[Rfam]
RNA sequence: GAGGGUAGGCCCCUCGGGAUCGGCUUUCAGGAGCGGGUCUCAAACCAGCCCAAGCUGCUGUGGUAGAAGAGCCAUGGUGGUGAGCGUUGGGUCAAAAGCCGCGGACAUGAUCCGGGGCAGGU
Number, nucleotide and partner (000 for none) at each position: 001g015002a014003g013004g012005g011006u000007a000008g000009g000010c000011c005012c004013c003014u002015c001016g041017g040018g039019a038020u037021c036022g000023g034024c033025u032026u031027u000028c000029a000030g000031g026032a025033g024034c023035g000036g021037g020038u019039c018040u017041c016042a000043a000044a000045c000046c121047a000048g092049c091050c090051c089052a088053a087054g081055c080056u000057g078058c077059u076060g000061u074062g073063g072064u071065a000066g000067a000068a000069g000070a000071g064072c063073c062074a061075u000076g059077g058078u057079g000080g055081u054082g000083a000084g000085c000086g000087u053088u052089g051090g050091g049092u048093c000094a000095a000096a000097a000098g118099c117100c116101g000102c114103g113104g000105a000106c000107a000108u000109g000110a000111u000112c000113c103114g102115g000116g100117g099118c098119a000120g000121g046122u000
RNA: Group II catalytic intron D1-D4-2
Organism: Rhizobium sp.